[Rfam]
RNA sequence: UCUAGGGCGACCUAGAAUCUGGAGGAAGUCAGAGGCAAAUCCCCGCCUUGAGGGACACGAACUUCAUAGAAGGCUAUCUAUUCUUGGAUGAGAUUGCUAAACAAAUCGAAGUCCGUAUUGCCGAAGGGAAUAGGCAGUAAAUGAAGCAAGGACAUGGGGAGGAAGUGUGUGUA
Numbered sequence: 001u002c003u004a005g006g007g008c009g010a011c012c013u014a015g016a017a018u019c020u021g022g023a024g025g026a027a028g029u030c031a032g033a034g035g036c037a038a039a040u041c042c043c044c045g046c047c048u049u050g051a052g053g054g055a056c057a058c059g060a061a062c063u064u065c066a067u068a069g070a071a072g073g074c075u076a077u078c079u080a081u082u083c084u085u086g087g088a089u090g091a092g093a094u095u096g097c098u099a100a101a102c103a104a105a106u107c108g109a110a111g112u113c114c115g116u117a118u119u120g121c122c123g124a125a126g127g128g129a130a131u132a133g134g135c136a137g138u139a140a141a142u143g144a145a146g147c148a149a150g151g152a153c154a155u156g157g158g159g160a161g162g163a164a165g166u167g168u169g170u171g172u173a
Stems, first nucleotide, its partner, number of pairs: 001016006030171002035166002040160006046151005062146006073138003077134007086114004092107004

Shown here is a 173-nucleotide RNA from Gracilibacillus halophilus, a member of the family "Group II catalytic intron D1-D4-3". A search with the family's covariance model found it, with a score of 139 bits. The base pairs follow the family's consensus structure.